[Rfam]
RNA sequence: UUGACAGGCUCUGGAGAGUCCCUUAAAUGGGCGCCGAAGGUGUAAGCGCGACGCGGGUUGAAGCGAUCGCGUGAUCUCUCAGGCAAACGGACAGAGUGAAUCCU
Numbered sequence: 001u002u003g004a005c006a007g008g009c010u011c012u013g014g015a016g017a018g019u020c021c022c023u024u025a026a027a028u029g030g031g032c033g034c035c036g037a038a039g040g041u042g043u044a045a046g047c048g049c050g051a052c053g054c055g056g057g058u059u060g061a062a063g064c065g066a067u068c069g070c071g072u073g074a075u076c077u078c079u080c081a082g083g084c085a086a087a088c089g090g091a092c093a094g095a096g097u098g099a100a101u102c103c104u
Base pairs, nucleotide, nucleotide: 008097009096010095011094012093013092020031021030022029033084034083035082036080037079040078042076046072047071048070049069050068051067
Dot-bracket structure: .......((((((......(((......))).(((((..(.(...((((((...............))))))...).))).))).......)))))).......
This 104-nucleotide sequence from Pseudoramibacter alactolyticus belongs to the Rfam family "Glycine riboswitch aptamer".